[Rfam]
Nucleotides: 099
Base pairs, nucleotide, nucleotide: 001099002098003097004096005095006094008089042048043047
Number, partner (000 for none) and nucleotide at each position: 001099a002098u003097c004096a005095u006094c007000a008089a009000g010000a011000u012000g013000a014000c015000g016000a017000a018000a019000u020000c021000a022000g023000a024000a025000a026000a027000u028000c029000u030000u031000a032000g033000g034000a035000c036000a037000c038000c039000u040000u041000c042048u043047g044000a045000c046000a047043c048042a049000g050000u051000a052000c053000g054000a055000g056000g057000u058000u059000g060000c061000u062000g063000u064000g065000u066000a067000u068000g069000a070000g071000a072000a073000a074000g075000a076000u077000u078000u079000u080000c081000a082000u083000u084000u085000c086000u087000g088000a089008u090000a091000u092000g093000c094006g095005a096004u097003g098002a099001u
A member of the RNA family "Small nucleolar RNA snoR31/Z110/Z27" from Cephalotus follicularis, 99 nucleotides long. A search with the family's covariance model found it, with a score of 52 bits. By type it is a C/D-box small nucleolar RNA. For this family Rfam cites "Identification of 66 box C/D snoRNAs in Arabidopsis thaliana: extensive gene duplications generated multiple isoforms predicting new ribosomal RNA 2'-O-methylation sites" (Barneche et al., J Mol Biol, 2001).